[Rfam]
RNA sequence: UAACCAUUGCCGGGAGGUAAUGCUGAGCGCACAGAAGUCAGCAGAGGCCAUAGUAGCUGAAAGUUUUUUUCAGCGAAGGGC
Number, nucleotide and partner (000 for none) at each position: 001u025002a024003a000004c000005c022006a021007u020008u019009g018010c017011c016012g000013g000014g000015a000016g011017g010018u009019a008020a007021u006022g005023c000024u002025g001026a000027g000028c000029g000030c000031a000032c000033a000034g000035a000036a000037g000038u045039c044040a000041g000042c000043a000044g039045a038046g000047g081048c080049c079050a000051u000052a000053g000054u000055a000056g074057c073058u072059g071060a070061a069062a000063g000064u000065u000066u000067u000068u000069u061070u060071c059072a058073g057074c056075g000076a000077a000078g000079g049080g048081c047
RNA: Group II catalytic intron D1-D4-1
Organism: Eubacteriaceae bacterium CHKCI004